[Rfam]
RNA sequence: AUCGUUCAUCCCAUUAUUGGGACGGAAGUAGUCAAUUUAGACGAAGGAACGCAUU
Numbered sequence: 001a002u003c004g005u006u007c008a009u010c011c012c013a014u015u016a017u018u019g020g021g022a023c024g025g026a027a028g029u030a031g032u033c034a035a036u037u038u039a040g041a042c043g044a045a046g047g048a049a050c051g052c053a054u055u
Stems, first nucleotide, its partner, number of pairs: 003051005009022005025052001031042003
Glutamine riboswitch aptamer (glnA leader): a 55-nucleotide RNA.
The base pairs follow the family's consensus structure, which is taken from published work.
A reference for the family is Ames and Breaker (2011), "Bacterial aptamers that selectively bind glutamine", RNA Biol.